The family of this 74-nucleotide RNA from Hipposideros armiger is "Small nucleolar RNA SNORD113/SNORD114 family".
Its family is annotated with RNA processing and nucleolus in the Gene Ontology.
It is annotated as a C/D-box small nucleolar RNA.
The match comes from Rfam's covariance-model search (64 bits).
RNA sequence: UGGAUCAAAGAUAAUACUGGUGGCGGAGGAAUCAUGGAUGAUGACCACUAUGUAUCUGGAACUCUGAAGUCCAA
Number, nucleotide and partner (000 for none) at each position: 001u000002g072003g071004a070005u069006c000007a000008a000009a000010g000011a000012u000013a000014a000015u000016a000017c000018u000019g000020g000021u000022g000023g000024c000025g000026g000027a000028g000029g000030a000031a000032u000033c000034a000035u000036g000037g000038a000039u000040g000041a000042u000043g000044a000045c000046c000047a000048c000049u000050a000051u000052g000053u000054a000055u000056c000057u000058g000059g000060a000061a000062c000063u000064c000065u000066g000067a000068a000069g005070u004071c003072c002073a000074a000